The family of this 85-nucleotide sequence from Candidatus Izimoplasma sp. HR2 is "c-di-GMP-I riboswitch aptamer". The base pairs follow the family's consensus structure, which is taken from published work. Taxonomically the source falls in Candidatus Izemoplasma (Bacteria, Bacillati, Mycoplasmatota, Candidatus Izemoplasmataceae). Its family is annotated with cyclic-di-GMP binding in the Gene Ontology.
[Rfam]
RNA sequence: AUAUUCAAAAGGCAAUAACGUGGAAAUACGUUUACGCAAAGUCUCAGAGCUAACGAAGAAAUUCUAUGCUGGCUGGUCCGCAAUA
Numbered sequence: 001a002u003a004u005u006c007a008a009a010a011g012g013c014a015a016u017a018a019c020g021u022g023g024a025a026a027u028a029c030g031u032u033u034a035c036g037c038a039a040a041g042u043c044u045c046a047g048a049g050c051u052a053a054c055g056a057a058g059a060a061a062u063u064c065u066a067u068g069c070u071g072g073c074u075g076g077u078c079c080g081c082a083a084u085a
Stems, first nucleotide, its partner, number of pairs: 012037002017032006041078001043076001045075003048070003055064003